[Rfam]
Nucleotides: 053
Base pairs, nucleotide, nucleotide: 005050006049007048008047009046010045011044012043013042014041015040016039017038018037019036020035021034022033
Number, partner (000 for none) and nucleotide at each position: 001000c002000a003000a004000a005050u006049g007048a008047g009046a010045g011044c012043u013042u014041u015040u016039u017038g018037a019036a020035u021034c022033a023000a024000g025000u026000a027000a028000u029000a030000u031000a032000a033022u034021g035020a036019u037018u038017c039016a040015a041014a042013a043012a044011g045010u046009u047008c048007u049006c050005a051000a052000c053000g